[Rfam]
RNA sequence: UGGCGGGGGAGCACUACAACGGGAGGAGCCUGCGGUUUAAUUGGACUCAACGCCGGACAUCUCACCGGUUCCGACUCUGGGAGUGAAGGUCAGCUUGACGAGCUUACUCGACCCAGAGAGAGGUGGUGCAUGGCCGCCGUCAGCUCGUACCGUGAGGCGUCCUGUUAAGUUAGGCAACGAGCGAGACCCGUGUCCGUAGUUGCCAGCAGCACGUUCAGUGGCUGGGUACACUACGGAGACUGCCUCCGCUAAGGAGGAGGAAGGAGCGGGCAACGGUAGGUCAGUAUGCCCCGAAUGAACCGGGCAACACGCGGGCUACAAUGGCACGGACAGCGGGAUGCAGCCCCGAGAGGGGUAGCUAAUCCCACAAACCGUGUCUCAGUUCGGAUUGAGGGCUGAAACCCGCCCUCAUGAAGCUGGAUUCCGUAGUAAUCGCGUUUCAUCAAAACGCGGUGAAUACGUCCCUGCUCCUUGCACACACCGCCCGUCAAACCACCCGAGUGGGGCUGAGAUGAGGCUGUGCGUUUAGCACGGUCGAAUCUCGGUUCCGCAAGGGGGGUUAAGUCGUAACAAGGUAGGCGUAGGGGAAUCUGCGCCUGG
Numbered sequence: 001u002g003g004c005g006g007g008g009g010a011g012c013a014c015u016a017c018a019a020c021g022g023g024a025g026g027a028g029c030c031u032g033c034g035g036u037u038u039a040a041u042u043g044g045a046c047u048c049a050a051c052g053c054c055g056g057a058c059a060u061c062u063c064a065c066c067g068g069u070u071c072c073g074a075c076u077c078u079g080g081g082a083g084u085g086a087a088g089g090u091c092a093g094c095u096u097g098a099c100g101a102g103c104u105u106a107c108u109c110g111a112c113c114c115a116g117a118g119a120g121a122g123g124u125g126g127u128g129c130a131u132g133g134c135c136g137c138c139g140u141c142a143g144c145u146c147g148u149a150c151c152g153u154g155a156g157g158c159g160u161c162c163u164g165u166u167a168a169g170u171u172a173g174g175c176a177a178c179g180a181g182c183g184a185g186a187c188c189c190g191u192g193u194c195c196g197u198a199g200u201u202g203c204c205a206g207c208a209g210c211a212c213g214u215u216c217a218g219u220g221g222c223u224g225g226g227u228a229c230a231c232u233a234c235g236g237a238g239a240c241u242g243c244c245u246c247c248g249c250u251a252a253g254g255a256g257g258a259g260g261a262a263g264g265a266g267c268g269g270g271c272a273a274c275g276g277u278a279g280g281u282c283a284g285u286a287u288g289c290c291c292c293g294a295a296u297g298a299a300c301c302g303g304g305c306a307a308c309a310c311g312c313g314g315g316c317u318a319c320a321a322u323g324g325c326a327c328g329g330a331c332a333g334c335g336g337g338a339u340g341c342a343g344c345c346c347c348g349a350g351a352g353g354g355g356u357a358g359c360u361a362a363u364c365c366c367a368c369a370a371a372c373c374g375u376g377u378c379u380c381a382g383u384u385c386g387g388a389u390u391g392a393g394g395g396c397u398g399a400a401a402c403c404c405g406c407c408c409u410c411a412u413g414a415a416g417c418u419g420g421a422u423u424c425c426g427u428a429g430u431a432a433u434c435g436c437g438u439u440u441c442a443u444c445a446a447a448a449c450g451c452g453g454u455g456a457a458u459a460c461g462u463c464c465c466u467g468c469u470c471c472u473u474g475c476a477c478a479c480a481c482c483g484c485c486c487g488u489c490a491a492a493c494c495a496c497c498c499g500a501g502u503g504g505g506g507c508u509g510a511g512a513u514g515a516g517g518c519u520g521u522g523c524g525u526u527u528a529g530c531a532c533g534g535u536c537g538a539a540u541c542u543c544g545g546u547u548c549c550g551c552a553a554g555g556g557g558g559g560u561u562a563a564g565u566c567g568u569a570a571c572a573a574g575g576u577a578g579g580c581g582u583a584g585g586g587g588a589a590u591c592u593g594c595g596c597c598u599g600g
Stems, first nucleotide, its partner, number of pairs: 001478002003475003007472007016462002020426005025319001027317008035308002041056004065303007075118004080113002088108003092104003122292002125290004131286002133281003136277004143182006150157002161174004188269004193237007203226002207224003210220003240260002243257005323378007335366003340359002344355004385416001390411007432454008481574001483571001486567002489564001491561004496556003501551013516536008576599010

Rfam assigns this 600-nucleotide part of an RNA from Halorutilus salinus to the family "Archaeal small subunit ribosomal RNA". Clan: SSU clan. On this family, see Yusupov et al., Science 2001: "Crystal structure of the ribosome at 5.5 A resolution". Lineage of the source: Archaea > Methanobacteriati > Methanobacteriota > Halobacteria > Halorutilus. The family's consensus secondary structure is taken from published work.